[Rfam]
RNA sequence: UCAGGCUAUGAUUGUCCAAACGCAAGUCUUGUCUAAAUGAUUCGAAAUCAAGAAUUGUGUGGGGACAUCAGCGCUCGG
Numbered sequence: 001u002c003a004g005g006c007u008a009u010g011a012u013u014g015u016c017c018a019a020a021c022g023c024a025a026g027u028c029u030u031g032u033c034u035a036a037a038u039g040a041u042u043c044g045a046a047a048u049c050a051a052g053a054a055u056u057g058u059g060u061g062g063g064g065a066c067a068u069c070a071g072c073g074c075u076c077g078g
Base pairs, nucleotide, nucleotide: 002077004075005074006073009070010069011068012067014066015065016064017063021059022058023057024056025055027053028052029051030050031049
Shown here is a 78-nucleotide sequence from Eufriesea mexicana, a member of the family "mir-219 microRNA precursor family". The family has 92 seed sequences and 1,318 matches in Rfam 15.1. The family's consensus secondary structure was predicted with RNAalifold. The literature on the family includes a 2003 paper in Science by Lim et al., "Vertebrate microRNA genes".